[Rfam]
Rfam assigns this 51-nucleotide sequence to the family "DUF3800-VI RNA". It is one of the family's seed sequences.
RNA sequence: CAGUUGAGAGGGCUGUACGUACGGUCCGCUGAGCGCAAGCUCACUCGGCUG
Numbered sequence: 001c002a003g004u005u006g007a008g009a010g011g012g013c014u015g016u017a018c019g020u021a022c023g024g025u026c027c028g029c030u031g032a033g034c035g036c037a038a039g040c041u042c043a044c045u046c047g048g049c050u051g
Base pairs, nucleotide, nucleotide: 001051002050003049004048005047006046007045008044010027011026012025013024014023015022016021030043031042032041033040034039
It is annotated as a cis-regulatory element.
The base pairs follow the family's consensus structure, which is taken from published work.